[Rfam]
PreQ1 (pre queuosine) riboswitch aptamer: a 46-nucleotide RNA from Kingella negevensis.
Rfam describes the family as follows. This family is a bacterial riboswitch that binds to the metabolite preQ1, an intermediate in the biosynthesis of the modified nucleoside queuosine from GTP. One example of this riboswitch is located in the leader of the Bacillus subtilis ykvJKLM (queCDEF) operon which encodes four genes necessary for queuosine production. PreQ1 binding to the riboswitch aptamer is thought to induce premature transcription termination within the leader to down-regulate expression of these genes.
Lineage of the source: Bacteria > Pseudomonadati > Betaproteobacteria > Neisseriales > Kingella.
The match comes from Rfam's covariance-model search (48 bits).
The base pairs follow the family's consensus structure.
For this family Rfam cites "Identification of four genes necessary for biosynthesis of the modified nucleoside queuosine" (Reader et al., J Biol Chem, 2004).
RNA sequence: AACCACGCGGUUCGUAAACCUCCCGCGCUAACAAAACUAAGGAAAA
Numbered sequence: 001a002a003c004c005a006c007g008c009g010g011u012u013c014g015u016a017a018a019c020c021u022c023c024c025g026c027g028c029u030a031a032c033a034a035a036a037c038u039a040a041g042g043a044a045a046a
Stems, first nucleotide, its partner, number of pairs: 006027005015039002